[Rfam]
RNA sequence: CAGUUAAAGGGUCCGUAGUCGUGAAUGCAAUUAAAUGUCGUUGUUCAAUAGCGAUGAGUUUGCUAAUGUUUGCGGAACGGAUAGGGAGUGUAGUAUAGACUGGCGAAGAAUGAAAUCUCAAGACCCAGUUUGGACUAACGGAGGCGAAGGCGACACUCUUAGACGUAUCUUAGGAUCAAGGACGAAGGCAGGAGUAUCGAAAGUGAUUAGACACCGCUGUAGUUCCUGCAGUAAACUAUGCCGACAGCCUGUGUGUGAGAAUACGUGGGCGGGAGAAAUCUUAGUGUUCGGGCUCUGGGGAUAGUACGCUCGCAAGGGUGAAACUUAAAGCGAAAU
Numbered sequence: 001c002a003g004u005u006a007a008a009g010g011g012u013c014c015g016u017a018g019u020c021g022u023g024a025a026u027g028c029a030a031u032u033a034a035a036u037g038u039c040g041u042u043g044u045u046c047a048a049u050a051g052c053g054a055u056g057a058g059u060u061u062g063c064u065a066a067u068g069u070u071u072g073c074g075g076a077a078c079g080g081a082u083a084g085g086g087a088g089u090g091u092a093g094u095a096u097a098g099a100c101u102g103g104c105g106a107a108g109a110a111u112g113a114a115a116u117c118u119c120a121a122g123a124c125c126c127a128g129u130u131u132g133g134a135c136u137a138a139c140g141g142a143g144g145c146g147a148a149g150g151c152g153a154c155a156c157u158c159u160u161a162g163a164c165g166u167a168u169c170u171u172a173g174g175a176u177c178a179a180g181g182a183c184g185a186a187g188g189c190a191g192g193a194g195u196a197u198c199g200a201a202a203g204u205g206a207u208u209a210g211a212c213a214c215c216g217c218u219g220u221a222g223u224u225c226c227u228g229c230a231g232u233a234a235a236c237u238a239u240g241c242c243g244a245c246a247g248c249c250u251g252u253g254u255g256u257g258a259g260a261a262u263a264c265g266u267g268g269g270c271g272g273g274a275g276a277a278a279u280c281u282u283a284g285u286g287u288u289c290g291g292g293c294u295c296u297g298g299g300g301a302u303a304g305u306a307c308g309c310u311c312g313c314a315a316g317g318g319u320g321a322a323a324c325u326u327a328a329a330g331c332g333a334a335a336u
Stems, first nucleotide, its partner, number of pairs: 001297003011183004018176003074170003077166003082161001085159007092136002096132008107118003144151002188229006198222001202218004240293003244285002247270010273280002299326002308319004